[Rfam]
RNA sequence: UGGUUGUGAUGACAAACAUAUAUGCGUUUCUCGAUGCUGAGACUUGAUUUAUUCAAGGACCUAAUUUUGAUGAGCUAUGUGCGUGUCUGAGCCAA
Numbered sequence: 001u002g003g004u005u006g007u008g009a010u011g012a013c014a015a016a017c018a019u020a021u022a023u024g025c026g027u028u029u030c031u032c033g034a035u036g037c038u039g040a041g042a043c044u045u046g047a048u049u050u051a052u053u054c055a056a057g058g059a060c061c062u063a064a065u066u067u068u069g070a071u072g073a074g075c076u077a078u079g080u081g082c083g084u085g086u087c088u089g090a091g092c093c094a095a
Base pairs, nucleotide, nucleotide: 001094002093003092004091
Annotation:
The record is a 95-nucleotide RNA from Paspalum vaginatum, which matches "small nucleolar RNA snoR126" in Rfam. Taxonomically the source falls in Paspalum (Eukaryota, Streptophyta, Embryophyta, Euphyllophyta). A search with the family's covariance model found it, with a score of 69 bits. The literature on the family includes a 2009 paper in Nucleic Acids Res by Chen and Wu, "Mining small RNA sequencing data: a new approach to identify small nucleolar RNAs in Arabidopsis".